[Rfam]
mir-492 microRNA precursor family: a 74-nucleotide RNA from Rhinolophus ferrumequinum. The family has 6 seed sequences and 149 matches in Rfam 15.1. The base pairs follow the family's consensus structure, which was predicted with RNAalifold. Lineage of the source: Eukaryota > Eutheria > Yinpterochiroptera > Rhinolophoidea > Rhinolophus. Gene Ontology terms of the family: miRNA-mediated post-transcriptional gene silencing and RISC complex.
RNA sequence: ACCAUUGAGGAGCUGUGGGACAAGAUACUUGGUGCCACCAUUAAGAACUCCAGGAUUGUCCUACAGAUUACAAU
Numbered sequence: 001a002c003c004a005u006u007g008a009g010g011a012g013c014u015g016u017g018g019g020a021c022a023a024g025a026u027a028c029u030u031g032g033u034g035c036c037a038c039c040a041u042u043a044a045g046a047a048c049u050c051c052a053g054g055a056u057u058g059u060c061c062u063a064c065a066g067a068u069u070a071c072a073a074u
Stems, first nucleotide, its partner, number of pairs: 010069002013066011028054005034048001